[Rfam]
RNA sequence: GUCUUCAUGGCGCAGUUGGUUUAGCGCGUUGGUCUCAUAAAUUCUUGUUUAUGAUCAGAUGAAUAAUCUGGGCCAUCCAAAGGUCGCGAGUUCGAGUCUCGCUGAGGACA
Numbered sequence: 001g002u003c004u005u006c007a008u009g010g011c012g013c014a015g016u017u018g019g020u021u022u023a024g025c026g027c028g029u030u031g032g033u034c035u036c037a038u039a040a041a042u043u044c045u046u047g048u049u050u051a052u053g054a055u056c057a058g059a060u061g062a063a064u065a066a067u068c069u070g071g072g073c074c075a076u077c078c079a080a081a082g083g084u085c086g087c088g089a090g091u092u093c094g095a096g097u098c099u100c101g102c103u104g105a106g107g108a109c110a
Stems, first nucleotide, its partner, number of pairs: 001109007010027004029080004086102005
Rfam assigns this 110-nucleotide sequence from Pochonia chlamydosporia to the family "tRNA". Lineage of the source: Eukaryota > Fungi > Pezizomycotina > leotiomyceta > Pochonia chlamydosporia. Its family is annotated with triplet codon-amino acid adaptor activity in the Gene Ontology. From the family's description: Transfer RNA (tRNA) molecules are approximately 80 nucleotides in length. It scores 53 bits against the family's covariance model. The family's RNA type in Rfam is transfer RNA. The family's consensus secondary structure is taken from published work.